Overview: A member of the RNA family "mir-9193 microRNA precursor family" from Myotis davidii, 75 nucleotides long. Its family is annotated with miRNA-mediated post-transcriptional gene silencing and RISC complex in the Gene Ontology. The family has 2 seed sequences and 6,008 matches in Rfam 15.1.
RNA sequence: CUCGGGAGUGGGGGGAUCCCUCAGCCCAGAUUGUGAGAGAGCACAGGCCAGGCUGAGGGACCCCACCGGUGCACA
Numbered sequence: 001c002u003c004g005g006g007a008g009u010g011g012g013g014g015g016a017u018c019c020c021u022c023a024g025c026c027c028a029g030a031u032u033g034u035g036a037g038a039g040a041g042c043a044c045a046g047g048c049c050a051g052g053c054u055g056a057g058g059g060a061c062c063c064c065a066c067c068g069g070u071g072c073a074c075a
Stems, first nucleotide, its partner, number of pairs: 004072001006070001009068003013064003017060010029048001031046005